RNA sequence: GGAAAGGACGGUCUUCUCUUCCCGGUUCUUCCCAGAGUCGGGAAAAGCUGGGCUGAGAGGGCGAAAAAAAAAAAAG
Number, nucleotide and partner (000 for none) at each position: 001g000002g000003a000004a000005a000006g000007g000008a000009c000010g000011g000012u000013c000014u059015u058016c057017u056018c055019u000020u000021c052022c051023c050024g049025g048026u000027u000028c000029u044030u043031c042032c041033c040034a000035g000036a000037g000038u000039c000040g033041g032042g031043a030044a029045a000046a000047g000048c025049u024050g023051g022052g021053c000054u000055g018056a017057g016058a015059g014060g000061g000062c000063g000064a000065a000066a000067a000068a000069a000070a000071a000072a000073a000074a000075a000076g000
This 76-nucleotide sequence from Saimiri boliviensis belongs to the Rfam family "mir-320 microRNA precursor family". Taxonomically the source falls in Saimiri boliviensis (Eukaryota, Eutheria, Euarchontoglires, Cebidae). Rfam 15.1 lists 659 matches to the family in 129 species. On this family, see Berezikov et al., Genome Res 2006: "Many novel mammalian microRNA candidates identified by extensive cloning and RAKE analysis".